This 99-nucleotide sequence from Cercocebus atys belongs to the Rfam family "Y RNA". It is annotated as a non-coding RNA gene.
[Rfam]
RNA sequence: GGCUGCUCCACAGAGUGAGUUAGUUACCUCAGUCAGUUACAGCUGAACUCCUUGUUCCACUCUUUAUCCCUUCUCACUACUGCACUUGACUAGUCUUUA
Numbered sequence: 001g002g003c004u005g006c007u008c009c010a011c012a013g014a015g016u017g018a019g020u021u022a023g024u025u026a027c028c029u030c031a032g033u034c035a036g037u038u039a040c041a042g043c044u045g046a047a048c049u050c051c052u053u054g055u056u057c058c059a060c061u062c063u064u065u066a067u068c069c070c071u072u073c074u075c076a077c078u079a080c081u082g083c084a085c086u087u088g089a090c091u092a093g094u095c096u097u098u099a
Stems, first nucleotide, its partner, number of pairs: 001095005007089002010087001014078006031061003036057001

Pairs were carried over by alignment from the consensus structure, which is taken from published work. Rfam's curators write: Y RNAs are components of the Ro ribonucleoprotein particle (Ro RNP), in association with Ro60 and La proteins. The Y RNAs and Ro60 and La proteins are well conserved, but the function of the Ro RNP is not known. In humans the RNA component can be one of four small RNAs -- hY1, hY3, hY4 and hY5. These small RNAs are predicted to fold into a conserved secondary structure containing three stem structures. The largest of the four, hY1, contains an additional hairpin. This family includes a significant number of annotated pseudogenes and the model is expected to discriminate poorly between real and Y RNA related pseudogenes. The literature on the family includes a 2000 paper in Nucleic Acids Res by Teunissen et al., "Conserved features of Y RNAs: a comparison of experimentally derived secondary structures". NCBI's taxonomy places the organism under Eukaryota, Mammalia, Boreoeutheria, Cercopithecinae, Cercocebus.